Rfam assigns this 90-nucleotide RNA from Lupinus albus to the family "Small nucleolar RNA snoR27". It is annotated as a C/D-box small nucleolar RNA. On this family, see Brown et al., RNA 2001: "Multiple snoRNA gene clusters from Arabidopsis". It scores 56 bits against the family's covariance model. Clan: snR68 clan.
[Rfam]
RNA sequence: UAUGGAUCUGUUAUUUUAUUAAUAAAGUUCGUUAUCUGUCUGAAACUUUCUAAGGGAAUUGAAGAUAACUAUAACUUGCUGAGAUACCUU
Numbered sequence: 001u002a003u004g005g006a007u008c009u010g011u012u013a014u015u016u017u018a019u020u021a022a023u024a025a026a027g028u029u030c031g032u033u034a035u036c037u038g039u040c041u042g043a044a045a046c047u048u049u050c051u052a053a054g055g056g057a058a059u060u061g062a063a064g065a066u067a068a069c070u071a072u073a074a075c076u077u078g079c080u081g082a083g084a085u086a087c088c089u090u
Stems, first nucleotide, its partner, number of pairs: 002090001004088002006085002